[Rfam]
RNA sequence: ACUUUCUUGUCGGAGUGCCUAGCGUAAGCUGUUUUAUCGCAGCAUACACAGGCUGAGACCGUUAAUUCGGGAUCCGCGGAACCUGAUCGGGUUAAUACCCGCGAAGGGAACAAGAGUAAUCAACCG
Numbered sequence: 001a002c003u004u005u006c007u008u009g010u011c012g013g014a015g016u017g018c019c020u021a022g023c024g025u026a027a028g029c030u031g032u033u034u035u036a037u038c039g040c041a042g043c044a045u046a047c048a049c050a051g052g053c054u055g056a057g058a059c060c061g062u063u064a065a066u067u068c069g070g071g072a073u074c075c076g077c078g079g080a081a082c083c084u085g086a087u088c089g090g091g092u093u094a095a096u097a098c099c100c101g102c103g104a105a106g107g108g109a110a111c112a113a114g115a116g117u118a119a120u121c122a123a124c125c126g
Stems, first nucleotide, its partner, number of pairs: 006114005011076004016070001017053004060069002082107003088101004